Bacterial RNase P class A: a 385-nucleotide RNA sequence from Desulfocapsa sulfexigens.
Pairs were carried over by alignment from the consensus structure, which is taken from published work.
Taxonomically the source falls in Desulfocapsa sulfexigens (Bacteria, Pseudomonadati, Desulfobulbales, Desulfocapsaceae).
Rfam classes the family as a ribozyme.
RNA sequence: UGGAGCGGGUGCAUGAUCGCUCGGGUCUUUAAGGCCUGAGAGGAAAGUCCGAACUCCGCAGGGCAGGAUGGUUCGUAACGCGAACGCCGGGUGACUGGCGGAAAGUGCCACAGAAAAUAUACCGCCGGGUCUUCGGAUUCGGUAAGGGUGAAAUGGCGAGGUAAGAGCUCACCGCCUGCACAGGUGACUGUCAGGGCAGGGUAAACCCCAUCCGGAGCAAGACCAAAUAGGAAGACGUCCCGCAGGAAGUGCCUUUGAGGUACAUUUUGUGGGUAUGGUUGCCCGCCAGAAGUCUUCGGGUAGGUUGCAAGAGGUGCCGGGUGACCGGCAUUCCAGUGAAAUGAUCAUGAUUGUACAGAAUUCGGCUUAUAGCCCGCUCCAUUUU
Numbered sequence: 001u002g003g004a005g006c007g008g009g010u011g012c013a014u015g016a017u018c019g020c021u022c023g024g025g026u027c028u029u030u031a032a033g034g035c036c037u038g039a040g041a042g043g044a045a046a047g048u049c050c051g052a053a054c055u056c057c058g059c060a061g062g063g064c065a066g067g068a069u070g071g072u073u074c075g076u077a078a079c080g081c082g083a084a085c086g087c088c089g090g091g092u093g094a095c096u097g098g099c100g101g102a103a104a105g106u107g108c109c110a111c112a113g114a115a116a117a118u119a120u121a122c123c124g125c126c127g128g129g130u131c132u133u134c135g136g137a138u139u140c141g142g143u144a145a146g147g148g149u150g151a152a153a154u155g156g157c158g159a160g161g162u163a164a165g166a167g168c169u170c171a172c173c174g175c176c177u178g179c180a181c182a183g184g185u186g187a188c189u190g191u192c193a194g195g196g197c198a199g200g201g202u203a204a205a206c207c208c209c210a211u212c213c214g215g216a217g218c219a220a221g222a223c224c225a226a227a228u229a230g231g232a233a234g235a236c237g238u239c240c241c242g243c244a245g246g247a248a249g250u251g252c253c254u255u256u257g258a259g260g261u262a263c264a265u266u267u268u269g270u271g272g273g274u275a276u277g278g279u280u281g282c283c284c285g286c287c288a289g290a291a292g293u294c295u296u297c298g299g300g301u302a303g304g305u306u307g308c309a310a311g312a313g314g315u316g317c318c319g320g321g322u323g324a325c326c327g328g329c330a331u332u333c334c335a336g337u338g339a340a341a342u343g344a345u346c347a348u349g350a351u352u353g354u355a356c357a358g359a360a361u362u363c364g365g366c367u368u369a370u371a372g373c374c375c376g377c378u379c380c381a382u383u384u385u
Base pairs, nucleotide, nucleotide: 001381002380003379004378005377006376007375008374009373010372011370012349013348014347015346016345017344018343020040021039022038023037024036025035026034027033028032045368046367047366049365050364051363052362053361054217055216056215057214061284062283063282064281066213067212068211069210070209071085072084073083074082075081086099087098088097089096090095100208101207105206106205107202108201109200122147123146124143125142126141127140128139129138130137131136155173156172158170159169160168174197175195176194177193178192180191181190182189183188221306222305223304224303231297232296233295234294235293236292276288277287278286279285313332314331315330316329317328318327319326320325